[Rfam]
RNA sequence: UCGCUCACAGAGUGGCUGUUGUAUGCAAUUGUAGAGUCAUAUCACAGCCAGCUUUGAUGAGCGUCG
Numbered sequence: 001u002c003g004c005u006c007a008c009a010g011a012g013u014g015g016c017u018g019u020u021g022u023a024u025g026c027a028a029u030u031g032u033a034g035a036g037u038c039a040u041a042u043c044a045c046a047g048c049c050a051g052c053u054u055u056g057a058u059g060a061g062c063g064u065c066g
Stems, first nucleotide, its partner, number of pairs: 005060003008056005013050007021042001024041002
RNA: mir-2 microRNA precursor family
Organism: Cotesia congregata